[Rfam]
RNA sequence: GUGAAGGCCCACUCGCCGUCCCCGGUCAGCAGCGCCUGCUCGCCGAAGUGGUCGCCGUCGGCGAGGGUGCCCAGCCGGUUCUGCUCGCCGUAGGACCCCUCGCCGAGCUUCUCGACCUUGCCGUGGGCGAUCAGGUAGACCGUGUCGGCCGGCUGCCCCGCCUCCGCCAGGACGUCACCGGGGGCGAACUCCCGCUGGACGAAGCGGUCGGCGAGCGCGGUCAGCGCCUCCUCGUCGCCGAAGGAGCGCAGCGCCGCGAUCUCGCCCAGUUCCUGUGGGAUGACCCGGACCUGCGACCCGGUCUUGACGAACGUCACCCGGCCGUCGCCGACGGCGUAGCUGAGCCGCCGGUUGACCCGGUAGGUGCCCGCGCUGACCUGGACCCAGGGCAGCACCUUGAGCAGCCACCUGGACGAGAUGCCCUGCAUCUGGGGGGUGGACUUGGUCGUCGUGGCCAGAUUCCGCGCGGCGGCCGUAUCGAGGCUCGUACGCGCUG
Numbered sequence: 001g002u003g004a005a006g007g008c009c010c011a012c013u014c015g016c017c018g019u020c021c022c023c024g025g026u027c028a029g030c031a032g033c034g035c036c037u038g039c040u041c042g043c044c045g046a047a048g049u050g051g052u053c054g055c056c057g058u059c060g061g062c063g064a065g066g067g068u069g070c071c072c073a074g075c076c077g078g079u080u081c082u083g084c085u086c087g088c089c090g091u092a093g094g095a096c097c098c099c100u101c102g103c104c105g106a107g108c109u110u111c112u113c114g115a116c117c118u119u120g121c122c123g124u125g126g127g128c129g130a131u132c133a134g135g136u137a138g139a140c141c142g143u144g145u146c147g148g149c150c151g152g153c154u155g156c157c158c159c160g161c162c163u164c165c166g167c168c169a170g171g172a173c174g175u176c177a178c179c180g181g182g183g184g185c186g187a188a189c190u191c192c193c194g195c196u197g198g199a200c201g202a203a204g205c206g207g208u209c210g211g212c213g214a215g216c217g218c219g220g221u222c223a224g225c226g227c228c229u230c231c232u233c234g235u236c237g238c239c240g241a242a243g244g245a246g247c248g249c250a251g252c253g254c255c256g257c258g259a260u261c262u263c264g265c266c267c268a269g270u271u272c273c274u275g276u277g278g279g280a281u282g283a284c285c286c287g288g289a290c291c292u293g294c295g296a297c298c299c300g301g302u303c304u305u306g307a308c309g310a311a312c313g314u315c316a317c318c319c320g321g322c323c324g325u326c327g328c329c330g331a332c333g334g335c336g337u338a339g340c341u342g343a344g345c346c347g348c349c350g351g352u353u354g355a356c357c358c359g360g361u362a363g364g365u366g367c368c369c370g371c372g373c374u375g376a377c378c379u380g381g382a383c384c385c386a387g388g389g390c391a392g393c394a395c396c397u398u399g400a401g402c403a404g405c406c407a408c409c410u411g412g413a414c415g416a417g418a419u420g421c422c423c424u425g426c427a428u429c430u431g432g433g434g435g436g437u438g439g440a441c442u443u444g445g446u447c448g449u450c451g452u453g454g455c456c457a458g459a460u461u462c463c464g465c466g467c468g469g470c471g472g473c474c475g476u477a478u479c480g481a482g483g484c485u486c487g488u489a490c491g492c493g494c495u496g
Stems, first nucleotide, its partner, number of pairs: 006384002009381003014375001015322002018319001023313002026310002030306003034302003040296004046292001048227002052223001054221005059105004067097001069096001071094002074091001076090004112215001116211002121206001124203001126200001128198001130196001134192002137190002143186002149182002152179001154177001156171001160167002229289003234284004239279001244276001246274001248272001250271003255264002323336004346372003350368002355365003385425007393417001395415001397412003401409001431470001434467001436465005442458005476496001479493002482490001
Shown here is a 496-nucleotide sequence from Actinacidiphila bryophytorum, a member of the family "Saccharopolyspora sRNA 350". Lineage of the source: Bacteria > Actinomycetota > Actinomycetes > Streptomycetaceae > Actinacidiphila. Pairs were carried over by alignment from the consensus structure, which was predicted with RNAfold. Rfam classes the family as an antisense RNA. It scores 149 bits against the family's covariance model.